[Rfam]
RNA sequence: AUAAAUGAGCGGUAAGACCGAUACAGGUUGUUCUGUGUGUUCCCUUCCAUAGGUUGGCCACAGCACAGACGUUUAGGCCUGUUAGGCACGCUCUUUUU
Numbered sequence: 001a002u003a004a005a006u007g008a009g010c011g012g013u014a015a016g017a018c019c020g021a022u023a024c025a026g027g028u029u030g031u032u033c034u035g036u037g038u039g040u041u042c043c044c045u046u047c048c049a050u051a052g053g054u055u056g057g058c059c060a061c062a063g064c065a066c067a068g069a070c071g072u073u074u075a076g077g078c079c080u081g082u083u084a085g086g087c088a089c090g091c092u093c094u095u096u097u098u
Base pairs, nucleotide, nucleotide: 001098003096004095005094009091010090024081025080026079027078028077029076031075032069033068034067035066036065037064038063043057044056047053048052